Nucleotides: 052
Stems, first nucleotide, its partner, number of pairs: 016044007025035004
Number, partner (000 for none) and nucleotide at each position: 001000a002000u003000a004000u005000g006000c007000c008000g009000g010000g011000a012000u013000c014000g015000c016044c017043c018042u019041c020040c021039g022038u023000c024000a025035g026034c027033g028032c029000g030000u031000u032028g033027c034026g035025c036000c037000c038022a039021c040020g041019g042018g043017g044016g045000c046000a047000a048000u049000c050000g051000u052000c
Notes
The record is a 52-nucleotide RNA sequence from Roseovarius albus, which matches "ffh sRNA" in Rfam. By type it is a small RNA. The source organism's lineage runs through Bacteria, Pseudomonadota, Rhodobacterales, Roseobacteraceae and Roseovarius. On this family, see Meyer et al., BMC Genomics 2009: "Identification of candidate structured RNAs in the marine organism 'Candidatus Pelagibacter ubique'". It scores 63 bits against the family's covariance model.